Rfam assigns this 37-nucleotide RNA from Leptospira interrogans to the family "CRISPR RNA direct repeat element". The base pairs follow the family's consensus structure, which was predicted with WAR.
[Rfam]
RNA sequence: UCUGAAUAUAACUUUGAUGCCGUUAGGCGUUGAGCAC
Numbered sequence: 001u002c003u004g005a006a007u008a009u010a011a012c013u014u015u016g017a018u019g020c021c022g023u024u025a026g027g028c029g030u031u032g033a034g035c036a037c
Base pairs, nucleotide, nucleotide: 016031017030018029019028020027021026